Shown here is a 138-nucleotide RNA sequence from Tupaia belangeri, a member of the family "Small Cajal body specific RNA 11". A reference for the family is Darzacq et al. (2002), "Cajal body-specific small nuclear RNAs: a novel class of 2'-O-methylation and pseudouridylation guide RNAs", EMBO J. About the family: scaRNAs are a specific class of small nuclear RNAs which localise to the Cajal bodies and guide the modification of RNA polymerase II transcribed spliceosomal RNAs U1, U2, U4, U5 and U12. ACA57 belongs to the H/ACA box class of guide RNAs as it has the predicted hairpin-hinge-hairpin-tail structure, conserved H/ACA-box motifs and is found associated with GAR1. ACA57 is predicted to guide the pseudouridylation of the U5 spliceosomal RNA at position U43.

RNA sequence: UCAUCCUGGCCGGUGCUUUUUCCGCUCCACUCUGCUGUCUUAGCAGGGUAGCCUGUCGGGGCGCACAGCAGUACCCCUCUUAGUUUAGGAGGGUUGUACUAAGAAUAGGGCCAACUCUUAAAGGCAUGACAGGACAGU
Numbered sequence: 001u002c003a004u005c006c007u008g009g010c011c012g013g014u015g016c017u018u019u020u021u022c023c024g025c026u027c028c029a030c031u032c033u034g035c036u037g038u039c040u041u042a043g044c045a046g047g048g049u050a051g052c053c054u055g056u057c058g059g060g061g062c063g064c065a066c067a068g069c070a071g072u073a074c075c076c077c078u079c080u081u082a083g084u085u086u087a088g089g090a091g092g093g094u095u096g097u098a099c100u101a102a103g104a105a106u107a108g109g110g111c112c113a114a115c116u117c118u119u120a121a122a123g124g125c126a127u128g129a130c131a132g133g134a135c136a137g138u
Stems, first nucleotide, its partner, number of pairs: 002063001004061005011055001024052003028048001030046002033043001076133003080129002083125004089119007096111002099108003
NCBI's taxonomy places the organism under Eukaryota, Chordata, Dipnotetrapodomorpha, Tupaia, Tupaia belangeri.